[Rfam]
RNA: Small nucleolar RNA SNORA42/SNORA80 family
RNA sequence: GGAUUAACCACGAUAAACGAGGGACAACUGUACCCCUGGGUCUCUACUAGUGUCCCAUGCCAGAGCAGACUGUGGCCUUGAACCAUUGCCUGGUCUCUGCCUGUAGGCUGCAGGCACUGAAGUGAGUUGUACAGUG
Numbered sequence: 001g002g003a004u005u006a007a008c009c010a011c012g013a014u015a016a017a018c019g020a021g022g023g024a025c026a027a028c029u030g031u032a033c034c035c036c037u038g039g040g041u042c043u044c045u046a047c048u049a050g051u052g053u054c055c056c057a058u059g060c061c062a063g064a065g066c067a068g069a070c071u072g073u074g075g076c077c078u079u080g081a082a083c084c085a086u087u088g089c090c091u092g093g094u095c096u097c098u099g100c101c102u103g104u105a106g107g108c109u110g111c112a113g114g115c116a117c118u119g120a121a122g123u124g125a126g127u128u129g130u131a132c133a134g135u136g
Base pairs, nucleotide, nucleotide: 001060003058004057007053008052017048020045022043023042024041025039028038073129074128075127076126078124084119085118089114090113091110092109093108094107095106096105